[Rfam]
RNA sequence: AUCAAGGGAGUAGCAGACGGUUUUUACCGUGGAUCCGGUCGUCAUUACGAAAGAAAUUUCCGGCUGGACCUUAAACAGCGAGACUUGUUUAGCAAACAGGUCUCUUUUU
Numbered sequence: 001a002u003c004a005a006g007g008g009a010g011u012a013g014c015a016g017a018c019g020g021u022u023u024u025u026a027c028c029g030u031g032g033a034u035c036c037g038g039u040c041g042u043c044a045u046u047a048c049g050a051a052a053g054a055a056a057u058u059u060c061c062g063g064c065u066g067g068a069c070c071u072u073a074a075a076c077a078g079c080g081a082g083a084c085u086u087g088u089u090u091a092g093c094a095a096a097c098a099g100g101u102c103u104c105u106u107u108u109u
Stems, first nucleotide, its partner, number of pairs: 005030001007028002012022003031070002034068008044059001048053001080104011